[Rfam]
RNA sequence: UGAUAUAGGGAAUGAGUAAACACGGUGCAGUGCUUGCACUGUGCAGCGUGUUUAUAAAAUGACCGAACAGACAUGAGGAAAAAAGAUAUGCGAAUGAAAUGAACAUAUCGUUUUCCGAAUGGCUGUAGCAUAACGAGAGCGCUGCGGAGUUAUGCGUAUAUCA
Numbered sequence: 001u002g003a004u005a006u007a008g009g010g011a012a013u014g015a016g017u018a019a020a021c022a023c024g025g026u027g028c029a030g031u032g033c034u035u036g037c038a039c040u041g042u043g044c045a046g047c048g049u050g051u052u053u054a055u056a057a058a059a060u061g062a063c064c065g066a067a068c069a070g071a072c073a074u075g076a077g078g079a080a081a082a083a084a085g086a087u088a089u090g091c092g093a094a095u096g097a098a099a100u101g102a103a104c105a106u107a108u109c110g111u112u113u114u115c116c117g118a119a120u121g122g123c124u125g126u127a128g129c130a131u132a133a134c135g136a137g138a139g140c141g142c143u144g145c146g147g148a149g150u151u152a153u154g155c156g157u158a159u160a161u162c163a
Stems, first nucleotide, its partner, number of pairs: 001163007009063001010060001013058001016055009026045002028041005067126004072121003077116004085109006128155007139145002
Overview:
Clostridiales-1 RNA: a 163-nucleotide sequence from Butyrivibrio proteoclasticus. The organism belongs to Butyrivibrio proteoclasticus, within Bacteria. The base pairs follow the family's consensus structure, which is taken from published work. It is annotated as a small RNA.